[Rfam]
RNA sequence: GGCGACCGGCCGGACGUAGGUACGCACCUUUCGCUCGGCCCACAAGUGGAGGCUCCGAUCUCCCACCCGAUCCGUCCCCCGGGACGGCGGGUCUCCGGUCAGGCGGCCGCCAUCGUUCCGUACGGACGAUGGAGUCGCCCGAUUCGCGCCCCGCGUUCACCGCGGCGGUGCUCCGGUAGUGAGGAGCCCCGCCUGUGAUCGUCCGGGGCAUUUUUU
Numbered sequence: 001g002g003c004g005a006c007c008g009g010c011c012g013g014a015c016g017u018a019g020g021u022a023c024g025c026a027c028c029u030u031u032c033g034c035u036c037g038g039c040c041c042a043c044a045a046g047u048g049g050a051g052g053c054u055c056c057g058a059u060c061u062c063c064c065a066c067c068c069g070a071u072c073c074g075u076c077c078c079c080c081g082g083g084a085c086g087g088c089g090g091g092u093c094u095c096c097g098g099u100c101a102g103g104c105g106g107c108c109g110c111c112a113u114c115g116u117u118c119c120g121u122a123c124g125g126a127c128g129a130u131g132g133a134g135u136c137g138c139c140c141g142a143u144u145c146g147c148g149c150c151c152c153g154c155g156u157u158c159a160c161c162g163c164g165g166c167g168g169u170g171c172u173c174c175g176g177u178a179g180u181g182a183g184g185a186g187c188c189c190c191g192c193c194u195g196u197g198a199u200c201g202u203c204c205g206g207g208g209c210a211u212u213u214u215u216u
Stems, first nucleotide, its partner, number of pairs: 004100006012036002037093005043069001046066004050061002072087006102139003106136001110132008148209006154201002161197003164193005170187005